[Rfam]
Nucleotides: 045
Stems, first nucleotide, its partner, number of pairs: 006021006
Number, partner (000 for none) and nucleotide at each position: 001000u002000a003000a004000a005000c006021g007020g008019c009018u010017c011016u012000u013000u014000u015000a016011a017010g018009a019008g020007c021006c022000a023000c024000c025000c026000a027000u028000a029000u030000u031000u032000u033000c034000c035000u036000u037000u038000a039000a040000a041000a042000g043000a044000g045000c

A member of the RNA family "Histone 3' UTR stem-loop" from Ameiurus melas, 45 nucleotides long. It scores 38 bits against the family's covariance model. Lineage of the source: Eukaryota > Bilateria > Vertebrata > Actinopterygii > Ameiurus.